[Rfam]
RNA: glmS glucosamine-6-phosphate activated ribozyme aptamer
Organism: Oscillibacter sp. CAG:155
RNA sequence: GGCCCAUCAAAAGCGCCAGCGCCUGCCGGAAACCGGCAGGAUGACGAGGAGAAGGGAACAAACGGGGGAACCACCCCUGUGAUCGAAUGUUCGGCGGAUGCCCUUCCGUACAUGCAGGUGCGAACAUGGCCCACAAAUAUGCGGAUAACCGCAAAACAGAACGGCCAUGACUGCGAAAA
Numbered sequence: 001g002g003c004c005c006a007u008c009a010a011a012a013g014c015g016c017c018a019g020c021g022c023c024u025g026c027c028g029g030a031a032a033c034c035g036g037c038a039g040g041a042u043g044a045c046g047a048g049g050a051g052a053a054g055g056g057a058a059c060a061a062a063c064g065g066g067g068g069a070a071c072c073a074c075c076c077c078u079g080u081g082a083u084c085g086a087a088u089g090u091u092c093g094g095c096g097g098a099u100g101c102c103c104u105u106c107c108g109u110a111c112a113u114g115c116a117g118g119u120g121c122g123a124a125c126a127u128g129g130c131c132c133a134c135a136a137a138u139a140u141g142c143g144g145a146u147a148a149c150c151g152c153a154a155a156a157c158a159g160a161a162c163g164g165c166c167a168u169g170a171c172u173g174c175g176a177a178a179a
Stems, first nucleotide, its partner, number of pairs: 022040006029033001051106005059093001107120001108115001125169007140153005